Qrr RNA: a 102-nucleotide RNA sequence from Vibrio thalassae. The base pairs follow the family's consensus structure, which is taken from published work. Rfam's curators write: This family represents a set of small RNAs (the Qrr RNAs) that are thought to be involved in the regulation of quorum sensing in Vibrio species. It is believed that these RNAs, guided by a protein, Hfq, can mediate the destabilisation of the quorum-sensing master regulators LuxR/HapR mRNAs. Its family is annotated with quorum sensing in the Gene Ontology. It scores 75 bits against the family's covariance model. A reference for the family is Lenz et al. (2004), "The Small RNA Chaperone Hfq and Multiple Small RNAs Control Quorum Sensing in Vibrio harveyi and Vibrio cholerae", Cell.
RNA sequence: UGACCUCAAUUUGUUGAGGUCACCUAGCCAACUGACGUUGUUAGUGAACCUAUUUGUUCACACUGUUUUAGGCCGAUUGAGUAGUCAAUCGGUUUUUUUUAC
Numbered sequence: 001u002g003a004c005c006u007c008a009a010u011u012u013g014u015u016g017a018g019g020u021c022a023c024c025u026a027g028c029c030a031a032c033u034g035a036c037g038u039u040g041u042u043a044g045u046g047a048a049c050c051u052a053u054u055u056g057u058u059c060a061c062a063c064u065g066u067u068u069u070a071g072g073c074c075g076a077u078u079g080a081g082u083a084g085u086c087a088a089u090c091g092g093u094u095u096u097u098u099u100u101a102c
Base pairs, nucleotide, nucleotide: 001022002021003020004019005018006017038071039070040069044061045060046059047058048057049056073092074091075090076089077088078087079086080085